[Rfam]
RNA sequence: UCCAUCUCAACGGGGUGCGCCAUUGACGGCGCUGAGAGGCUGAUCUGGCCAACCCGUCGAACCUGAACCGGGUCAUGCCGGCGGAGGGAAUUGAGCUGUAUCUGCCC
Numbered sequence: 001u002c003c004a005u006c007u008c009a010a011c012g013g014g015g016u017g018c019g020c021c022a023u024u025g026a027c028g029g030c031g032c033u034g035a036g037a038g039g040c041u042g043a044u045c046u047g048g049c050c051a052a053c054c055c056g057u058c059g060a061a062c063c064u065g066a067a068c069c070g071g072g073u074c075a076u077g078c079c080g081g082c083g084g085a086g087g088g089a090a091u092u093g094a095g096c097u098g099u100a101u102c103u104g105c106c107c
Stems, first nucleotide, its partner, number of pairs: 006095005011056004017032005039049004062087003068081004
The record is a 107-nucleotide RNA sequence from Aestuariispira insulae, which matches "TPP riboswitch aptamer (THI element)" in Rfam.
Gene Ontology term of the family: thiamine pyrophosphate binding.
Pairs were carried over by alignment from the consensus structure, which is taken from published work.
NCBI's taxonomy places the organism under Bacteria, Pseudomonadati, Alphaproteobacteria, Aestuariispiraceae, Aestuariispira.